[Rfam]
RNA sequence: UUCCCAACAGUUCUCUGAUUUAAAUUCUCCGCAAGGAAGUAUCGUGGUCAGAACUUAACCCUAAGUAAUUG
Numbered sequence: 001u002u003c004c005c006a007a008c009a010g011u012u013c014u015c016u017g018a019u020u021u022a023a024a025u026u027c028u029c030c031g032c033a034a035g036g037a038a039g040u041a042u043c044g045u046g047g048u049c050a051g052a053a054c055u056u057a058a059c060c061c062u063a064a065g066u067a068a069u070u071g
Stems, first nucleotide, its partner, number of pairs: 009055003015051006
Ascomycota telomerase RNA: a 71-nucleotide part of an RNA from Lachnellula arida. It scores 106 bits against the family's covariance model. For this family Rfam cites "The common ancestral core of vertebrate and fungal telomerase RNAs" (Qi et al., Nucleic Acids Res, 2013). Its Rfam clan is "Telomerase clan".